[Rfam]
RNA sequence: UGAAAUUAUGGCGAUGGAUUCCGCCCAAUAACCGCCUUUAUAGGCUAAUGACUCCUACGUAUCU
Numbered sequence: 001u002g003a004a005a006u007u008a009u010g011g012c013g014a015u016g017g018a019u020u021c022c023g024c025c026c027a028a029u030a031a032c033c034g035c036c037u038u039u040a041u042a043g044g045c046u047a048a049u050g051a052c053u054c055c056u057a058c059g060u061a062u063c064u
Stems, first nucleotide, its partner, number of pairs: 010025004016055003020051002034045004
The record is a 64-nucleotide RNA sequence from Acidithiobacillus marinus, which matches "Fluoride riboswitch aptamer (crcB RNA motif)" in Rfam. The family's consensus secondary structure is taken from published work. The organism belongs to Acidithiobacillus, within Bacteria. A search with the family's covariance model found it, with a score of 55 bits.